Rfam assigns this 74-nucleotide sequence from Kribbella flavida to the family "tRNA". A search with the family's covariance model found it, with a score of 47 bits.
RNA sequence: GCCCUGGUACUCCAAUUGGCAGAGAGCGCGGAUUCAAAACCCGUUCAGUGUGGGUUCGAGUCCCACCCAGGGCA
Dot-bracket structure: (((((((..(((...........))).((((.........)))).....(((((.......)))))))))))).
Numbered sequence: 001g002c003c004c005u006g007g008u009a010c011u012c013c014a015a016u017u018g019g020c021a022g023a024g025a026g027c028g029c030g031g032a033u034u035c036a037a038a039a040c041c042c043g044u045u046c047a048g049u050g051u052g053g054g055u056u057c058g059a060g061u062c063c064c065a066c067c068c069a070g071g072g073c074a
Stems, first nucleotide, its partner, number of pairs: 001073007010026003028044004050066005

Rfam describes the family as follows. Transfer RNA (tRNA) molecules are approximately 80 nucleotides in length. Its family is annotated with triplet codon-amino acid adaptor activity in the Gene Ontology. The source organism's lineage runs through Bacteria, Bacillati, Actinomycetes, Propionibacteriales and Kribbella flavida.